The record is a 266-nucleotide RNA from Eubacterium aggregans, which matches "Bacterial large signal recognition particle RNA" in Rfam. The signal recognition particle (SRP) is a universally conserved ribonucleoprotein involved in the co-translational targeting of proteins to membranes.
[Rfam]
RNA sequence: UCACACUAGACGGGGAGGUAGCGGUGCCCUGUAACCUGCAAUCCGCUAUAGCAGGGUUGAAUUCCCCAAAGAGGUUCCAUUUUUUAGAGUCUGCCGGUAUUAAGUGGUGUUGACGUUUGGACCCUCCGCAAUAAAAACUUAUGAACCCUGUCAGAUCCGGAAGGAAGCAGCAGUAAGUAAGACCUUUUAUGUGCCGGAGGAUUAUCUGAAUUGAGCUAACUGAUAGUGUAACGUCUGAAGGAUGUCUAUCGAUGCGGGGUGUGUGU
Dot-bracket structure: .(((((..(((((((.(.(...).).))))....(((((...........)))))))).....((((..(..(((...((((((((((...((..(.((((..(((((......(((((((.((((((((.(((((.(((((.....((((....(((....)))....))))...)))))...)))))))...))))))....)))))))...))).)).)))).).))...))))))))))....)))..)..)))).))))).
The base pairs follow the family's consensus structure, which is taken from published work. By type it is a non-coding RNA gene.